[Rfam]
RNA: mir-128 microRNA precursor family
Organism: Conger conger
RNA sequence: GGGUGGCAGGAUGUGGGGCCGGGACACUGUCUGAGACGACUACCAUUCUCACAGUGAACCGGUCUCUUUUCCCGCCACUGA
Numbered sequence: 001g002g003g004u005g006g007c008a009g010g011a012u013g014u015g016g017g018g019c020c021g022g023g024a025c026a027c028u029g030u031c032u033g034a035g036a037c038g039a040c041u042a043c044c045a046u047u048c049u050c051a052c053a054g055u056g057a058a059c060c061g062g063u064c065u066c067u068u069u070u071c072c073c074g075c076c077a078c079u080g081a
Base pairs, nucleotide, nucleotide: 006075007074009072010071015066016065017064018063019062020061021060025056026055027054028053029052030051033050034049035048